This 77-nucleotide sequence from Eptesicus fuscus belongs to the Rfam family "mir-182 microRNA precursor family". For this family Rfam cites "Identification and expression profiling of microRNAs during bovine oocyte maturation using heterologous approach" (Tesfaye et al., Mol Reprod Dev, 2009). Lineage of the source: Eukaryota > Bilateria > Chordata > Theria > Eptesicus.
RNA sequence: CACCGUGUUUGGCAAUGGUAGAACUCACACUGGUGAGGUAAUGGGAUCCGGUGGUUCUAGACUUGCCAACUAUGGUG
Numbered sequence: 001c002a003c004c005g006u007g008u009u010u011g012g013c014a015a016u017g018g019u020a021g022a023a024c025u026c027a028c029a030c031u032g033g034u035g036a037g038g039u040a041a042u043g044g045g046a047u048c049c050g051g052u053g054g055u056u057c058u059a060g061a062c063u064u065g066c067c068a069a070c071u072a073u074g075g076u077g
Stems, first nucleotide, its partner, number of pairs: 002076005009069007019059006028053006